[Rfam]
RNA sequence: AAAUUCCAAUCUAGGCAAGGGGUGAAGCCGCCUCACCUAGAAUCGAGUCUUGGGGGUGGGAAGGUAACGACCCACGCUAAGCGUAGACAGAGCGAAAUUAGGCCGUAACGUAAGUGAAGCGAUUGAGCCUCGUUAAAACAUCCGGAGGCCGACAAGGUCGAAAACUUGGAAGGCUAUAGUAACUUUCCGCUAAUGGCAAGGAAAGUGGAGACUCCGGCGGGGUCUGAGAGCA
Numbered sequence: 001a002a003a004u005u006c007c008a009a010u011c012u013a014g015g016c017a018a019g020g021g022g023u024g025a026a027g028c029c030g031c032c033u034c035a036c037c038u039a040g041a042a043u044c045g046a047g048u049c050u051u052g053g054g055g056g057u058g059g060g061a062a063g064g065u066a067a068c069g070a071c072c073c074a075c076g077c078u079a080a081g082c083g084u085a086g087a088c089a090g091a092g093c094g095a096a097a098u099u100a101g102g103c104c105g106u107a108a109c110g111u112a113a114g115u116g117a118a119g120c121g122a123u124u125g126a127g128c129c130u131c132g133u134u135a136a137a138a139c140a141u142c143c144g145g146a147g148g149c150c151g152a153c154a155a156g157g158u159c160g161a162a163a164a165c166u167u168g169g170a171a172g173g174c175u176a177u178a179g180u181a182a183c184u185u186u187c188c189g190c191u192a193a194u195g196g197c198a199a200g201g202a203a204a205g206u207g208g209a210g211a212c213u214c215c216g217g218c219g220g221g222g223u224c225u226g227a228g229a230g231c232a
Stems, first nucleotide, its partner, number of pairs: 012039004019034004023199001029196001043091002047088004051083002053078002056075005063068001124226001125224001127223006142217006148174003153168004180208001182206007
RNA: Group II catalytic intron D1-D4-6